[Rfam]
RNA sequence: UGAGUGUUAUGAUGAUGGGUGUCACGUGAUGAUACCUUAGUCUAGCUCUGGUCUACCGCUAAAGGAGAACUCCUUUAGCGG
Number, nucleotide and partner (000 for none) at each position: 001u000002g048003a047004g046005u045006g000007u000008u000009a000010u000011g042012a041013u040014g000015a000016u000017g037018g036019g035020u034021g033022u032023c000024a000025c000026g000027u000028g000029a000030u000031g000032a022033u021034a020035c019036c018037u017038u000039a000040g013041u012042c011043u000044a000045g005046c004047u003048c002049u000050g000051g000052u000053c000054u000055a000056c081057c080058g079059c078060u077061a076062a075063a074064g073065g000066a000067g000068a000069a000070c000071u000072c000073c064074u063075u062076u061077a060078g059079c058080g057081g056